[Rfam]
RNA sequence: GGUCGAUGAUGAUAAUGCAGAAGUGUUCUGAGGGCACAGGGGAAUUACACCCCAUUACCCUUGUGGCUCCCAGCAGUCCCUGUUCUUUCAUGCCAGAGUAGAGCUAUGAUUGAGGAGAAGGGAUUGCUGACAGUCUGGGAUUAAUUCAGUUCCAGUUCUCCACAGUGAAGGGAGUUGUGGCACCAAAUGUAAUCCGACAGAUGUGGCUGAGAGGAGCUCAUGGUCAUGGGGUGCUGUCAUUUGUCAUGCGUGAUCAAAGGUUUUCAAGCUGAGACC
Dot-bracket structure: ((((..................................((.......((((((((...........(((((((((((......((((((((((.........).)))))..)))).......))))))).......(.(((((........(((...((((.........))))...))).........)))))).................)))).........))))))))....................)).................))))
Small Cajal body specific RNA 6: a 276-nucleotide RNA from Acanthisitta chloris. The match comes from Rfam's covariance-model search (87 bits). Taxonomically the source falls in Acanthisitta (Eukaryota, Opisthokonta, Sarcopterygii, Aves). A reference for the family is Darzacq et al. (2002), "Cajal body-specific small nuclear RNAs: a novel class of 2'-O-methylation and pseudouridylation guide RNAs", EMBO J. From the family's description: U88 is small Cajal body specific RNA (scaRNA). scaRNAs are a novel class of small nuclear RNAs which localise to the Cajal bodies. U88 is found associated with both fibrillarin and Gar1p and co-localises with coilin in Cajal bodies.